[Rfam]
RNA: Group II catalytic intron D1-D4-1
RNA sequence: CGCCUCAUGGGGCAACCGAUGAGGAGAUUAAGCAGAAGUCAGCAGAGGCCAUAGUAGCCAAACGCCUGCUGUAAUGGGCAGGACAAGGUGAAGGGC
Dot-bracket structure: (..(((((.((....)).)))))..)............((....)).(((......(((...........................)))....)))